Rfam assigns this 589-nucleotide part of an RNA from Acutalibacter sp. 1XD8-33 to the family "Bacterial large subunit ribosomal RNA". NCBI's taxonomy places the organism under Bacteria, Bacillati, Clostridia, Eubacteriales, Acutalibacter. A search with the family's covariance model found it, with a score of 2775 bits. A reference for the family is Yusupov et al. (2001), "Crystal structure of the ribosome at 5.5 A resolution", Science. Its family is annotated with structural constituent of ribosome and ribosome in the Gene Ontology.

[Rfam]
RNA sequence: CCCGCGACAAGACGGAAAGACCCCAUGGAGCUUUACUGCAGCUUAAUAUUGGGUUUCGAUAAUUUAUGUACAGGAUAGGUGGGAGGCAGCGAACUACGAGCGCUAGCUUGUAGGGAGCCAACCUUGGGAUACCACCCUUAGAUUGUUGGAAUUCUAACCUGCGGCCAUGAAUCUGGCCGGGGGACAUUGUUAGGUGGGCAGUUUGACUGGGGCGGUCGCCUCCAAAAGAGUAACGGAGGCGCUCAAAGGUCGGCUCGGCACGGAUGGAAACCGUGCUACUGAGUGUAAACGCAUAAGCUGGCCUAACUGCGAGGAUGACGGUCCGAGCAGUAACGAAAGUUGGAGUUAGUGAUCCGGCGGUAGAGUGUGGAAUUGCCGUCGCUCAACGGAUAAAAGCUACCCUGGGGAUAACAGGCUGAUCUCCCCCAAGAGUUCACAUCGACGGGGAGGUUUGGCACCUCGAUGUCGGCUCGUCACAUCCUGGGGCUGUAUUCGGUCCCAAGGGUUCGGCUGUUCGCCGAUUAAAGUGGCACGCGAGCUGGGUUCAGAACGUCGUGAGACAGUUCGGUCCCUAUCUGUCGUGGGCGCA
Numbered sequence: 001c002c003c004g005c006g007a008c009a010a011g012a013c014g015g016a017a018a019g020a021c022c023c024c025a026u027g028g029a030g031c032u033u034u035a036c037u038g039c040a041g042c043u044u045a046a047u048a049u050u051g052g053g054u055u056u057c058g059a060u061a062a063u064u065u066a067u068g069u070a071c072a073g074g075a076u077a078g079g080u081g082g083g084a085g086g087c088a089g090c091g092a093a094c095u096a097c098g099a100g101c102g103c104u105a106g107c108u109u110g111u112a113g114g115g116a117g118c119c120a121a122c123c124u125u126g127g128g129a130u131a132c133c134a135c136c137c138u139u140a141g142a143u144u145g146u147u148g149g150a151a152u153u154c155u156a157a158c159c160u161g162c163g164g165c166c167a168u169g170a171a172u173c174u175g176g177c178c179g180g181g182g183g184a185c186a187u188u189g190u191u192a193g194g195u196g197g198g199c200a201g202u203u204u205g206a207c208u209g210g211g212g213c214g215g216u217c218g219c220c221u222c223c224a225a226a227a228g229a230g231u232a233a234c235g236g237a238g239g240c241g242c243u244c245a246a247a248g249g250u251c252g253g254c255u256c257g258g259c260a261c262g263g264a265u266g267g268a269a270a271c272c273g274u275g276c277u278a279c280u281g282a283g284u285g286u287a288a289a290c291g292c293a294u295a296a297g298c299u300g301g302c303c304u305a306a307c308u309g310c311g312a313g314g315a316u317g318a319c320g321g322u323c324c325g326a327g328c329a330g331u332a333a334c335g336a337a338a339g340u341u342g343g344a345g346u347u348a349g350u351g352a353u354c355c356g357g358c359g360g361u362a363g364a365g366u367g368u369g370g371a372a373u374u375g376c377c378g379u380c381g382c383u384c385a386a387c388g389g390a391u392a393a394a395a396g397c398u399a400c401c402c403u404g405g406g407g408a409u410a411a412c413a414g415g416c417u418g419a420u421c422u423c424c425c426c427c428a429a430g431a432g433u434u435c436a437c438a439u440c441g442a443c444g445g446g447g448a449g450g451u452u453u454g455g456c457a458c459c460u461c462g463a464u465g466u467c468g469g470c471u472c473g474u475c476a477c478a479u480c481c482u483g484g485g486g487c488u489g490u491a492u493u494c495g496g497u498c499c500c501a502a503g504g505g506u507u508c509g510g511c512u513g514u515u516c517g518c519c520g521a522u523u524a525a526a527g528u529g530g531c532a533c534g535c536g537a538g539c540u541g542g543g544u545u546c547a548g549a550a551c552g553u554c555g556u557g558a559g560a561c562a563g564u565u566c567g568g569u570c571c572c573u574a575u576c577u578g579u580c581g582u583g584g585g586c587g588c589a
Stems, first nucleotide, its partner, number of pairs: 001585008010577003014572002022406004027402002029398005035202004042194007051154016068137001078136005085119003094113008158182003162179006205217004218240006241387001243344002249302006255282002258276006283292002307330004313324003332341003355381007363374002415456003419453001420450007430440002467542001468540004472534001473531005480505002483500006507521005548566004552561003